[Rfam]
RNA sequence: UUAUAUUGUUCUUUGGUGAUCUAGUUGUAUGAGUAUUUUUUAUUUCAUAAAGCUGGUUCAGCAAAGCACAAUGUAU
Numbered sequence: 001u002u003a004u005a006u007u008g009u010u011c012u013u014u015g016g017u018g019a020u021c022u023a024g025u026u027g028u029a030u031g032a033g034u035a036u037u038u039u040u041u042a043u044u045u046c047a048u049a050a051a052g053c054u055g056g057u058u059c060a061g062c063a064a065a066g067c068a069c070a071a072u073g074u075a076u
Base pairs, nucleotide, nucleotide: 002075003074004073005072007070008069009068011066012065013064014063015062017060018059019058021056022055023054024053025052026051028049029048030047031046032045033044
Shown here is a 76-nucleotide RNA from Diabrotica virgifera, a member of the family "mir-9/mir-79 microRNA precursor family". The match comes from Rfam's covariance-model search (62 bits). NCBI's taxonomy places the organism under Eukaryota, Allotriocarida, Eumetabola, Endopterygota, Diabrotica virgifera. The base pairs follow the family's consensus structure, which was predicted with RNAalifold. The family has 214 seed sequences and 5,647 matches in Rfam 15.1.